[Rfam]
RNA sequence: UUCUCGCUCAAAGAAUCGCAUUCGAAGCACACAAACAGAAAUAUCUUCAUUGAUGUUUCAAUUCACAUCUAUGCUUUGGGAGAAAGUCCCCGGACACCCUUCUUUCUAAAUGUUAGGAUUGCGGAAACGCGCCGCCAUAGAAGCACUUGCGGCUUCUCUUCCACCAAUUCUUUACCUUCAAUUUCAUACAUCCUUCUGCCGUUUGCACUAUUACUUGGACGCUUCAUGACGAUCGAACUUGGAACUUGGGAGACCACAUGGAUGAAGAUAUGAGUCCGAGCUUCCUUGCGAUGGGUUCAAAUGGCUUGGAGAAGAUGGGUGGUGGGAGGCACAAGGUAUGUUCUUGAUUGAGGUGGGAGUGCUAAUGGUGGACGAGGCUUUUUCGUCGAGAUCGAUAGUUAUGCGAUUGCCUUCCUUUCUGCUUCCAAGCUGAGGAGGUAACUCGAUGGGGCUUAUUCUUGAUGCGAGG
Numbered sequence: 001u002u003c004u005c006g007c008u009c010a011a012a013g014a015a016u017c018g019c020a021u022u023c024g025a026a027g028c029a030c031a032c033a034a035a036c037a038g039a040a041a042u043a044u045c046u047u048c049a050u051u052g053a054u055g056u057u058u059c060a061a062u063u064c065a066c067a068u069c070u071a072u073g074c075u076u077u078g079g080g081a082g083a084a085a086g087u088c089c090c091c092g093g094a095c096a097c098c099c100u101u102c103u104u105u106c107u108a109a110a111u112g113u114u115a116g117g118a119u120u121g122c123g124g125a126a127a128c129g130c131g132c133c134g135c136c137a138u139a140g141a142a143g144c145a146c147u148u149g150c151g152g153c154u155u156c157u158c159u160u161c162c163a164c165c166a167a168u169u170c171u172u173u174a175c176c177u178u179c180a181a182u183u184u185c186a187u188a189c190a191u192c193c194u195u196c197u198g199c200c201g202u203u204u205g206c207a208c209u210a211u212u213a214c215u216u217g218g219a220c221g222c223u224u225c226a227u228g229a230c231g232a233u234c235g236a237a238c239u240u241g242g243a244a245c246u247u248g249g250g251a252g253a254c255c256a257c258a259u260g261g262a263u264g265a266a267g268a269u270a271u272g273a274g275u276c277c278g279a280g281c282u283u284c285c286u287u288g289c290g291a292u293g294g295g296u297u298c299a300a301a302u303g304g305c306u307u308g309g310a311g312a313a314g315a316u317g318g319g320u321g322g323u324g325g326g327a328g329g330c331a332c333a334a335g336g337u338a339u340g341u342u343c344u345u346g347a348u349u350g351a352g353g354u355g356g357g358a359g360u361g362c363u364a365a366u367g368g369u370g371g372a373c374g375a376g377g378c379u380u381u382u383u384c385g386u387c388g389a390g391a392u393c394g395a396u397a398g399u400u401a402u403g404c405g406a407u408u409g410c411c412u413u414c415c416u417u418u419c420u421g422c423u424u425c426c427a428a429g430c431u432g433a434g435g436a437g438g439u440a441a442c443u444c445g446a447u448g449g450g451g452c453u454u455a456u457u458c459u460u461g462a463u464g465c466g467a468g469g
Stems, first nucleotide, its partner, number of pairs: 002469006008462004014408006022080001023078006038059007084454003088451004120131004132152004137147001278380003282376003286372002291369002294366001302364004345351001410438005
RNase MRP: a 469-nucleotide sequence from Monilinia vaccinii-corymbosi. Its Rfam clan is "RNaseP clan". RNase MRP is an enzymatically active ribonucleoprotein with two distinct roles in eukaryotes. It is annotated as a ribozyme.